Description:
The family of this 107-nucleotide RNA from Clostridioides difficile is "SAM riboswitch aptamer (S box leader)".
RNA sequence: GUCUUAUCAAGAGUGGUGGAGGGACUGGCCCUUUGAAACCCGGCAACCAGUAUAUUUUAUAUACAUUGGUGCUAAAUCCUGCAACUAAUAUAGUUGAUAGAUGAGUA
Numbered sequence: 001g002u003c004u005u006a007u008c009a010a011g012a013g014u015g016g017u018g019g020a021g022g023g024a025c026u027g028g029c030c031c032u033u034u035g036a037a038a039c040c041c042g043g044c045a046a047c048c049a050g051u052a053u054a055u056u057u058u059a060u061a062u063a064c065a066u067u068g069g070u071g072c073u074a075a076a077u078c079c080u081g082c083a084a085c086u087a088a089u090a091u092a093g094u095u096g097a098u099a100g101a102u103g104a105g106u107a
Stems, first nucleotide, its partner, number of pairs: 003105006013041001015040003021031003025081001027079002042073004047069002050064003077099001082096004
Taxonomically the source falls in Clostridioides (Bacteria, Clostridia, Peptostreptococcales, Peptostreptococcaceae).